[Rfam]
RNA sequence: CAGGGGGGGGAGGGUCCCUCACCCAGAUUGUGAGAGAGUGCUGGCCAGGUUGAGGGAACCCACCAGUGCAGG
Numbered sequence: 001c002a003g004g005g006g007g008g009g010g011a012g013g014g015u016c017c018c019u020c021a022c023c024c025a026g027a028u029u030g031u032g033a034g035a036g037a038g039u040g041c042u043g044g045c046c047a048g049g050u051u052g053a054g055g056g057a058a059c060c061c062a063c064c065a066g067u068g069c070a071g072g
Base pairs, nucleotide, nucleotide: 004069006067009064010063012061013060014059015057016056017055018054019053020052021051022049023048026045028043030041031040032039